The record is a 182-nucleotide sequence from Cryptobacterium sp. CAG:338, which matches "FMN riboswitch aptamer (RFN element)" in Rfam. Lineage of the source: Bacteria > Bacillati > Eggerthellales > Eggerthellaceae > Cryptobacterium. About the family: The RFN element is a highly conserved domain that is found frequently in the 5'-untranslated regions of prokaryotic mRNAs that encode for flavin mononucleotide (FMN) biosynthesis and transport proteins. The match comes from Rfam's covariance-model search (108 bits).
RNA sequence: UACAAUCUUCAGGGCGAGGUGAAAUUCCUCACUGGCGGUAAUGCGUAACGCAAAGCCCGCGACCCCAAUAGGAUUUCUUUUGCGAUGGUGCUCAUUAGUGGCAUUGGUAAGUGAAUGAAUAUUGGGCUGAUUCGGUUGAACUCCGAAGCCAACGGUUAAAGUCCGGAUGGAAGAAGAUGAUG
Dot-bracket structure: ....((((((......(((.......))).[[((((((................[[))))...(((((((.................................................)))))))....(((((.......)))))]])).(((.....]]))).......))))))....
Numbered sequence: 001u002a003c004a005a006u007c008u009u010c011a012g013g014g015c016g017a018g019g020u021g022a023a024a025u026u027c028c029u030c031a032c033u034g035g036c037g038g039u040a041a042u043g044c045g046u047a048a049c050g051c052a053a054a055g056c057c058c059g060c061g062a063c064c065c066c067a068a069u070a071g072g073a074u075u076u077c078u079u080u081u082g083c084g085a086u087g088g089u090g091c092u093c094a095u096u097a098g099u100g101g102c103a104u105u106g107g108u109a110a111g112u113g114a115a116u117g118a119a120u121a122u123u124g125g126g127c128u129g130a131u132u133c134g135g136u137u138g139a140a141c142u143c144c145g146a147a148g149c150c151a152a153c154g155g156u157u158a159a160a161g162u163c164c165g166g167a168u169g170g171a172a173g174a175a176g177a178u179g180a181u182g
Stems, first nucleotide, its partner, number of pairs: 005178006017029003031162002033151002035060004055149002064126007131147005153165003